[Rfam]
RNA sequence: UUCAAAUUGAAUAACAAGCCAUAGACAGUAGGUUCUAUUUUUGAUAAAUCCUACCGAGGUUUGAAGCGCUACAUUUCAACGAAGAGUUGUACGUUUUGAAUUUGGAAACCUUGUGGCUGUCAAAAGCAACAAGGUUUUGUUUUGGGCUGA
Numbered sequence: 001u002u003c004a005a006a007u008u009g010a011a012u013a014a015c016a017a018g019c020c021a022u023a024g025a026c027a028g029u030a031g032g033u034u035c036u037a038u039u040u041u042u043g044a045u046a047a048a049u050c051c052u053a054c055c056g057a058g059g060u061u062u063g064a065a066g067c068g069c070u071a072c073a074u075u076u077c078a079a080c081g082a083a084g085a086g087u088u089g090u091a092c093g094u095u096u097u098g099a100a101u102u103u104g105g106a107a108a109c110c111u112u113g114u115g116g117c118u119g120u121c122a123a124a125a126g127c128a129a130c131a132a133g134g135u136u137u138u139g140u141u142u143u144g145g146g147c148u149g150a
Base pairs, nucleotide, nucleotide: 028054029053030052031051032050108135109134110133111132112131113130114129116127117126

Rfam assigns this 150-nucleotide RNA sequence from Leptolyngbyaceae cyanobacterium LF-bin-369 to the family "Ribosomal protein L10 leader". NCBI's taxonomy places the organism under Bacteria, Bacillati, Cyanobacteriota, Leptolyngbyales, Leptolyngbyaceae. It scores 52 bits against the family's covariance model. Its family is annotated with regulation of gene expression in the Gene Ontology. From the family's description: This family is a putative r-protein leader autoregulatory structure found in B. subtilis and other low-GC Gram-positive bacteria. The family's consensus secondary structure was predicted with CMfinder.